[Rfam]
A member of the RNA family "MIR168 microRNA precursor family" from Daucus carota, 132 nucleotides long.

Nucleotides: 132
Base pairs, nucleotide, nucleotide: 013119014118017115018114019113020112023109024108025107026106027105028104029103030102031101032100034098035097036096037095038094040092041091042090043089044088
Number, partner (000 for none) and nucleotide at each position: 001000g002000u003000u004000g005000c006000g007000g008000c009000g010000u011000u012000c013119u014118c015000u016000a017115a018114u019113u020112c021000g022000c023109u024108u025107g026106g027105u028104g029103c030102a031101g032100g033000u034098c035097g036096g037095g038094a039000c040092c041091a042090u043089g044088u045000u046000a047000c048000a049000c050000a051000c052000a053000c054000c055000u056000a057000u058000a059000c060000a061000u062000a063000c064000a065000u066000a067000u068000a069000u070000u071000c072000g073000u074000g075000u076000a077000u078000a079000c080000a081000u082000a083000u084000g085000u086000u087000u088044g089043u090042g091041u092040g093000g094038u095037c096036c097035c098034g099000u100032u101031u102030u103029g104028c105027a106026u107025c108024a109023a110000u111000u112020g113019a114018a115017u116000c117000g118014g119013a120000g121000a122000g123000c124000g125000c126000u127000g128000c129000g130000a131000g132000u
A search with the family's covariance model found it, with a score of 85 bits.